[Rfam]
RNA: mir-9014 microRNA precursor family
RNA sequence: GGAGCCACAGGGAGGGACACCAAUCUAGGCUUAGGAAAAGAAAUCUGCCAUGUGAGUCUUGGAGAUUGCCUACCAUGCUAAUGACUUA
Numbered sequence: 001g002g003a004g005c006c007a008c009a010g011g012g013a014g015g016g017a018c019a020c021c022a023a024u025c026u027a028g029g030c031u032u033a034g035g036a037a038a039a040g041a042a043a044u045c046u047g048c049c050a051u052g053u054g055a056g057u058c059u060u061g062g063a064g065a066u067u068g069c070c071u072a073c074c075a076u077g078c079u080a081a082u083g084a085c086u087u088a
Base pairs, nucleotide, nucleotide: 002087003086004085006083007082010079011078013076015074016073021068022067023066024065025064030061038060039059040058041057044054046052047051